A member of the RNA family "Connexin-43 internal ribosome entry site (IRES)" from Phyllostomus discolor, 197 nucleotides long. Gene Ontology term of the family: ribosome binding. Lineage of the source: Eukaryota > Amniota > Eutheria > Laurasiatheria > Phyllostomus. It scores 84 bits against the family's covariance model.

RNA sequence: AGCUUUUAUCAGUUAUCAACAGUUGUCUUUCGUUAAGGGGAAGAAUGAAGAAGGAUACGACAGAAUAGCAGACUUACAAACUUUAGACAGUUUUGAGUGCUUGAACUUGCUUUUUCAUUUUACUUCAUCCUCCAAGGACUUGUGCAGUAACUGGUGUGCCUCCUUCACUCUAAGUGAAAGAACAGCAAACAGGUAAC
Numbered sequence: 001a002g003c004u005u006u007u008a009u010c011a012g013u014u015a016u017c018a019a020c021a022g023u024u025g026u027c028u029u030u031c032g033u034u035a036a037g038g039g040g041a042a043g044a045a046u047g048a049a050g051a052a053g054g055a056u057a058c059g060a061c062a063g064a065a066u067a068g069c070a071g072a073c074u075u076a077c078a079a080a081c082u083u084u085a086g087a088c089a090g091u092u093u094u095g096a097g098u099g100c101u102u103g104a105a106c107u108u109g110c111u112u113u114u115u116c117a118u119u120u121u122a123c124u125u126c127a128u129c130c131u132c133c134a135a136g137g138a139c140u141u142g143u144g145c146a147g148u149a150a151c152u153g154g155u156g157u158g159c160c161u162c163c164u165u166c167a168c169u170c171u172a173a174g175u176g177a178a179a180g181a182a183c184a185g186c187a188a189a190c191a192g193g194u195a196a197c
Stems, first nucleotide, its partner, number of pairs: 002020001004018001007015002030138002033135002037131003040126004047119002050116001052115003070094003074090002095110001097108001099106001151192003157187003163180003166176004